[Rfam]
RNA sequence: UAACCACUGACGAUAAUCGUGUAUGUUG
Numbered sequence: 001u002a003a004c005c006a007c008u009g010a011c012g013a014u015a016a017u018c019g020u021g022u023a024u025g026u027u028g
Base pairs, nucleotide, nucleotide: 001028002027003026004025008023010020011019012018013017